[Rfam]
RNA: 7SK RNA
Organism: Dryobates pubescens
RNA sequence: AGAUGUGAGGGCAAUCUGGCUGUGACAUCUGUCACCCCACUGAUGGCCAAGGUUGAUUUGGCUGAUCUGGCUGGCUAAGCAGGUGUCCCCUCCCUCCCCGACUGCUCCAUGUGCAUCCCUCCCGAAGCUGCGCAGCCUACCCCGAUAGAGACAGCACUGUUCAUUGGUCAAGUGGAUAUGGUAGCCGCACUCCCCUGCUAGAGCCUCCAAACAAGCUCCAGGUCCAUUUGCAGGAGAACAUAGGGUAAUGAAGCUUCCAAGACUGCAGACACAUCCAAGUGAGGCACUGCAUGGGGCAGUCUCCCACUGU
Dot-bracket structure: .((.((..(((......((....(((((((((..(((((..(((.(((...........)))..))))))..))....))))))))).)).....)))..))...)).........(.((((.(..(...).).).(......)...)))...).............................((.....(.(((((.......((((...((((...........))))..))))....))))).).....))........................(.(.((.(((((.....)))))...)).)..)